[Rfam]
RNA sequence: UCGCCCACAAUGCCCUUCAACGGUUUCAACACGGAUGUGGCUGCGUGCGUAGUGUGAGCGGAUACGAUGCACUAUGCCGGUCGGCUUUGCCGAAGCCCUGAAAAGGGGCAUCCCUGCUGGGGCCGUGGUCGGCGGAUGUGCGCCGUCCCAGUCGGUUCCUUCAUUGGUCUCCUCGCGCUAACCCCGUAGCGUGUGGUUUUUAGCGGGCUCCAGGCCCGCUUUUUUUU
Numbered sequence: 001u002c003g004c005c006c007a008c009a010a011u012g013c014c015c016u017u018c019a020a021c022g023g024u025u026u027c028a029a030c031a032c033g034g035a036u037g038u039g040g041c042u043g044c045g046u047g048c049g050u051a052g053u054g055u056g057a058g059c060g061g062a063u064a065c066g067a068u069g070c071a072c073u074a075u076g077c078c079g080g081u082c083g084g085c086u087u088u089g090c091c092g093a094a095g096c097c098c099u100g101a102a103a104a105g106g107g108g109c110a111u112c113c114c115u116g117c118u119g120g121g122g123c124c125g126u127g128g129u130c131g132g133c134g135g136a137u138g139u140g141c142g143c144c145g146u147c148c149c150a151g152u153c154g155g156u157u158c159c160u161u162c163a164u165u166g167g168u169c170u171c172c173u174c175g176c177g178c179u180a181a182c183c184c185c186g187u188a189g190c191g192u193g194u195g196g197u198u199u200u201u202a203g204c205g206g207g208c209u210c211c212a213g214g215c216c217c218g219c220u221u222u223u224u225u226u227u
Stems, first nucleotide, its partner, number of pairs: 005167003020126009030116002033113006039078003043073001045072006052065004081093005096107004129150001131148002171196002174193007202220008